[Rfam]
RNA: small nucleolar RNA snoR13
RNA sequence: UUUUGAAUGAGGAAAAAAGUUCUCAAAUGUUCGCAGUUGAGAGUUUUUAGUAAAAAGCUCAAUGAAUUUUUAUUGUAGCCUUCACUUAGAUGUCUGACAAUAAAA
Numbered sequence: 001u002u003u004u005g006a007a008u009g010a011g012g013a014a015a016a017a018a019g020u021u022c023u024c025a026a027a028u029g030u031u032c033g034c035a036g037u038u039g040a041g042a043g044u045u046u047u048u049a050g051u052a053a054a055a056a057g058c059u060c061a062a063u064g065a066a067u068u069u070u071u072a073u074u075g076u077a078g079c080c081u082u083c084a085c086u087u088a089g090a091u092g093u094c095u096g097a098c099a100a101u102a103a104a105a
Base pairs, nucleotide, nucleotide: 001105002104003103004102